This 143-nucleotide RNA sequence from Panicum virgatum belongs to the Rfam family "small nucleolar RNA snoR134". The match comes from Rfam's covariance-model search (109 bits). Gene Ontology terms of the family: nucleolus and RNA processing. NCBI's taxonomy places the organism under Eukaryota, Mesangiospermae, Poales, Panicinae, Panicum sect. Hiantes. Rfam classes the family as an H/ACA-box small nucleolar RNA.
RNA sequence: AUGCACGGUGCUAACCCCGGGCUUAUCGGAUUACACCUUGAAGAAGGAAGCCCCAAUGCCUGUGCUAGAUCUACCACGCCAUUCAGUGUUGCAGGCUAUGAUAAAUAUUGUGAUUGGUCUGUGUCAAAGCAAUGGAUACACAU
Numbered sequence: 001a002u003g004c005a006c007g008g009u010g011c012u013a014a015c016c017c018c019g020g021g022c023u024u025a026u027c028g029g030a031u032u033a034c035a036c037c038u039u040g041a042a043g044a045a046g047g048a049a050g051c052c053c054c055a056a057u058g059c060c061u062g063u064g065c066u067a068g069a070u071c072u073a074c075c076a077c078g079c080c081a082u083u084c085a086g087u088g089u090u091g092c093a094g095g096c097u098a099u100g101a102u103a104a105a106u107a108u109u110g111u112g113a114u115u116g117g118u119c120u121g122u123g124u125c126a127a128a129g130c131a132a133u134g135g136a137u138a139c140a141c142a143u
Base pairs, nucleotide, nucleotide: 003065004064005063006062007061008060010059011058019053020052021051022050023049024047026044027043079135080134081133082132083131087126088125090123091122092121093120094119095118
Dot-bracket structure: ..((((((.((.......((((((.((...............))..).)))))....)))))))).............(((((...((.((((((......................)))))).))....)))))........